[Rfam]
RNA: MicX Vibrio cholerae sRNA
RNA sequence: AUAAAAUUAGAAGAAGGGGCAUGUGGAUUGCCCCUCGAUAAAAGCUGAAAUAUUACACUUCUGGUUUGGCCGCCGAUCAGUAAUAUUGAGGCUCAUUGGUGUUACGAGUAGCUGGCUGUUAGUUUUGUUCCUUACGUCCUUUAUUACUGGCAGUUUUUGUAACCAUAACCUGAGACUUCUCUCAGGUUUUUUUCU
Numbered sequence: 001a002u003a004a005a006a007u008u009a010g011a012a013g014a015a016g017g018g019g020c021a022u023g024u025g026g027a028u029u030g031c032c033c034c035u036c037g038a039u040a041a042a043a044g045c046u047g048a049a050a051u052a053u054u055a056c057a058c059u060u061c062u063g064g065u066u067u068g069g070c071c072g073c074c075g076a077u078c079a080g081u082a083a084u085a086u087u088g089a090g091g092c093u094c095a096u097u098g099g100u101g102u103u104a105c106g107a108g109u110a111g112c113u114g115g116c117u118g119u120u121a122g123u124u125u126u127g128u129u130c131c132u133u134a135c136g137u138c139c140u141u142u143a144u145u146a147c148u149g150g151c152a153g154u155u156u157u158u159g160u161a162a163c164c165a166u167a168a169c170c171u172g173a174g175a176c177u178u179c180u181c182u183c184a185g186g187u188u189u190u191u192u193u194c195u
Stems, first nucleotide, its partner, number of pairs: 015035007043093002049087008062075004101163006114155009167188009
Dot-bracket structure: ..............(((((((.......))))))).......((....((((((((.....((((......))))....))))))))....)).......((((((.......(((((((((........................)))))))))..))))))...(((((((((....))))))))).......